[Rfam]
RNA sequence: CAUCCAUUGAGAUCGGCUGAGGGACAGGCCCCACGACGCCGAGGCAACCCGCGUCGCCACCGUGCGACAGAAGGUGCCAAUUCCUGCGGCGCGUCCCCACGUGUCGAAUGAUGGAGG
Numbered sequence: 001c002a003u004c005c006a007u008u009g010a011g012a013u014c015g016g017c018u019g020a021g022g023g024a025c026a027g028g029c030c031c032c033a034c035g036a037c038g039c040c041g042a043g044g045c046a047a048c049c050c051g052c053g054u055c056g057c058c059a060c061c062g063u064g065c066g067a068c069a070g071a072a073g074g075u076g077c078c079a080a081u082u083c084c085u086g087c088g089g090c091g092c093g094u095c096c097c098c099a100c101g102u103g104u105c106g107a108a109u110g111a112u113g114g115a116g117g
Stems, first nucleotide, its partner, number of pairs: 001117001003115006013042005021031003025086004043078004048074002050070001087106006
A member of the RNA family "SAM riboswitch aptamer (S box leader)", 117 nucleotides long. Its family is annotated with regulation of gene expression in the Gene Ontology. The base pairs follow the family's consensus structure, which is taken from published work.